The record is a 153-nucleotide RNA sequence from Glycine max, which matches "MIR4371 microRNA precursor family" in Rfam. Clan: MIR4387 microRNA precursor clan. Lineage of the source: Eukaryota > Tracheophyta > rosids > Phaseoleae > Glycine subgen. Soja. Rfam links the family to the GO terms RISC complex and miRNA-mediated post-transcriptional gene silencing.
[Rfam]
RNA sequence: CCGUUAAGUAAUGACGUGACAGACAAAGUAUCACAUCAUCACGCCUUGUCACACUCAUUGUCAUGCCAUCACCUUCAAUGAUGUGGCACUGACAUGUCAGUGAUUGGUCGUGAUGAAGUGACACUCUGUCUACCACGUCAUCACUUAACGGAA
Numbered sequence: 001c002c003g004u005u006a007a008g009u010a011a012u013g014a015c016g017u018g019a020c021a022g023a024c025a026a027a028g029u030a031u032c033a034c035a036u037c038a039u040c041a042c043g044c045c046u047u048g049u050c051a052c053a054c055u056c057a058u059u060g061u062c063a064u065g066c067c068a069u070c071a072c073c074u075u076c077a078a079u080g081a082u083g084u085g086g087c088a089c090u091g092a093c094a095u096g097u098c099a100g101u102g103a104u105u106g107g108u109c110g111u112g113a114u115g116a117a118g119u120g121a122c123a124c125u126c127u128g129u130c131u132a133c134c135a136c137g138u139c140a141u142c143a144c145u146u147a148a149c150g151g152a153a
Base pairs, nucleotide, nucleotide: 001151002150003149004148005147006146007145008144009143011141012140013139014138015137016136017135018134021131022130023129024128025127027125028124029123031121032120033119034118036116037115038114039113040112041111042110043109045107046106048104049103050102051101052100056096057095058094065082067080068079069078